[Rfam]
RNA sequence: CUCUUUUCCGUAUGCAAGUGUGUUCCUCUAUUUGACACUAAAGGUGGAUGCUCCAAUUGAAACACUUCACAAAUGUCAUUGUUACAUUUGAUAGUGUUCUUUACCUUUAGGGUCAAGAGACGAACACAAUCACCCAUAGAAAAGGAC
Numbered sequence: 001c002u003c004u005u006u007u008c009c010g011u012a013u014g015c016a017a018g019u020g021u022g023u024u025c026c027u028c029u030a031u032u033u034g035a036c037a038c039u040a041a042a043g044g045u046g047g048a049u050g051c052u053c054c055a056a057u058u059g060a061a062a063c064a065c066u067u068c069a070c071a072a073a074u075g076u077c078a079u080u081g082u083u084a085c086a087u088u089u090g091a092u093a094g095u096g097u098u099c100u101u102u103a104c105c106u107u108u109a110g111g112g113u114c115a116a117g118a119g120a121c122g123a124a125c126a127c128a129a130u131c132a133c134c135c136a137u138a139g140a141a142a143a144g145g146a147c
Stems, first nucleotide, its partner, number of pairs: 002146006009139001014133001017130001019128007027120003031117006038110008046099006056089001058086002061083004068075002
Shown here is a 147-nucleotide RNA sequence from Miscanthus lutarioriparius, a member of the family "MIR6234 microRNA precursor family".